[Rfam]
RNA sequence: CAUUUCCUGGAAUGAUCGACGAACCUGCUAUUUUGAACCUACAGAUAUUGAUAGGGAGUUCAAUAUUCUAGAAUGGAUGUCGGGCCUCAAGUUAAUUCCCUUUUGGGCGGAGGAAGGCAGAAAUUCUAAUGAGAACACCCACCUAGCUUGAGCUAGGGCGUCAAAAUGCAGGGAAACGACAUUUUGGGUUUUGA
Dot-bracket structure: .(...(((((((((..((............((.(((.((..............(((.((((...(...((((((.....((...((((.....................))))..)).....)))))).)..)))).)))................))..))).))..........)).)))))))))...)..
Shown here is a 194-nucleotide RNA sequence from Defluviitalea raffinosedens, a member of the family "6S / SsrS RNA".
Rfam describes the family as follows. E. coli 6S RNA was the first non coding RNA to be sequenced, but its function was unknown until recently. It consists of 184 nucleotides that fold into an extended hairpin structure with a large single-stranded internal bulge. The 6S RNA specifically associates with RNA polymerase holoenzyme containing the sigma70 specificity factor. This interaction represses expression from a sigma70-dependent promoter during stationary phase. 6S RNA homologs have recently been identified in most bacterial genomes.
Pairs were carried over by alignment from the consensus structure, which is taken from published work.
For this family Rfam cites "6S RNA regulates E. coli RNA polymerase activity" (Wassarman and Storz, Cell, 2000).